[Rfam]
RNA sequence: CUAAUCAGUUGUUGUAUUCGACUGUAUUCACAACGUGAAAUAGGGGAUUACACUAUUUUUUUAAAACGGAAAGUGAAUCAAUUAACAUAACAGACUCCU
Numbered sequence: 001c002u003a004a005u006c007a008g009u010u011g012u013u014g015u016a017u018u019c020g021a022c023u024g025u026a027u028u029c030a031c032a033a034c035g036u037g038a039a040a041u042a043g044g045g046g047a048u049u050a051c052a053c054u055a056u057u058u059u060u061u062u063a064a065a066a067c068g069g070a071a072a073g074u075g076a077a078u079c080a081a082u083u084a085a086c087a088u089a090a091c092a093g094a095c096u097c098c099u
Base pairs, nucleotide, nucleotide: 004096009093010092011091012090013089014088015087017085018084020083021082023080024079026078027077028076029075030074031073034068035067036066037059038058039057040056041055042054043053

Rfam assigns this 99-nucleotide RNA sequence from Nicotiana sylvestris to the family "MIR6152 microRNA precursor family". Gene Ontology terms of the family: miRNA-mediated post-transcriptional gene silencing and RISC complex. The family's consensus secondary structure was predicted with RNAalifold. The match comes from Rfam's covariance-model search (84 bits).